[Rfam]
5' ureB small RNA: a 291-nucleotide RNA sequence from Streptomyces smaragdinus. It scores 60 bits against the family's covariance model.
Nucleotides: 291
Stems, first nucleotide, its partner, number of pairs: 001291003005288004010161003014158002016074005028051002032048002037044001055067002075152002079148001081146001083144001088142002092138002095134003098129002101127003105123001107121002167277001169276003175271001177269001179267001181264001189225003194220002204213001227261003235253001238252001240250001
Number, partner (000 for none) and nucleotide at each position: 001291u002290c003289g004000u005288c006287g007286a008285g009000g010161a011160g012159u013000u014158g015157c016074g017073g018072c019071g020070a021000g022000a023000u024000g025000a026000a027000g028051u029050g030000c031000a032048c033047g034000u035000g036000g037044g038000c039000a040000u041000c042000g043000a044037u045000g046000g047033c048032g049000c050029c051028g052000g053000c054000g055067g056066u057000g058000a059000g060000g061000a062000u063000a064000c065000g066056g067055c068000c069000g070020u071019u072018g073017c074016c075152g076151g077000c078000g079148a080000u081146g082000a083144u084000c085000u086000c087000c088142g089141u090000c091000u092138c093137c094000g095134g096133g097132c098129c099128g100000a101127u102126g103125g104000c105123c106000a107121g108120c109000g110000c111000g112000g113000g114000g115000u116000c117000g118000a119000c120108g121107c122000c123105g124000u125103c126102c127101a128099u129098g130000g131000u132097g133096u134095c135000g136000g137093g138092g139000u140000u141089g142088c143000c144083g145000g146081c147000c148079u149000u150000g151076c152075c153000c154000a155000g156000g157015g158014c159012g160011c161010u162000g163000a164000u165000c166000c167277g168000c169276c170275c171274g172000u173000c174000g175271c176000g177269c178000a179267g180000g181264c182000c183000g184000a185000c186000g187000u188000c189225c190224g191223c192000c193000u194220u195219g196000a197000c198000g199000a200000c201000g202000c203000c204213c205000c206000a207000g208000u209000g210000g211000u212000c213204g214000a215000g216000g217000a218000u219195c220194a221000c222000c223191g224190c225189g226000c227261c228260c229259g230000u231000g232000a233000u234000c235253a236000c237000g238252g239000u240250g241000u242000c243000g244000g245000g246000g247000g248000c249000g250240c251000c252238c253235u254000c255000g256000g257000c258000g259229c260228g261227g262000g263000u264181g265000c266000g267179c268000a269177g270000g271175g272000a273000c274171u275170g276169g277167c278000c279000c280000a281000u282000c283000g284000a285008c286007u287006c288005g289003c290002g291001g